[Rfam]
Rfam assigns this 113-nucleotide sequence from Orthohepacivirus hominis to the family "J750 non-coding RNA (containing SLSL761 and SL783)". The family's RNA type in Rfam is cis-regulatory element.
RNA sequence: AUCCCUGUCGUUGGCGCCCCGGUCGGAGGCGUCGCCAGAGCUCUGGCACACGGUGUUAGGGUCCUGGAAGACGGGAUAAAUUACGCAACAGGGAAUCUACCCGGUUGCUCUUU
Numbered sequence: 001a002u003c004c005c006u007g008u009c010g011u012u013g014g015c016g017c018c019c020c021g022g023u024c025g026g027a028g029g030c031g032u033c034g035c036c037a038g039a040g041c042u043c044u045g046g047c048a049c050a051c052g053g054u055g056u057u058a059g060g061g062u063c064c065u066g067g068a069a070g071a072c073g074g075g076a077u078a079a080a081u082u083a084c085g086c087a088a089c090a091g092g093g094a095a096u097c098u099a100c101c102c103g104g105u106u107g108c109u110c111u112u113u
Stems, first nucleotide, its partner, number of pairs: 001077005007072003012034007019026002035067004040062010085108005091102003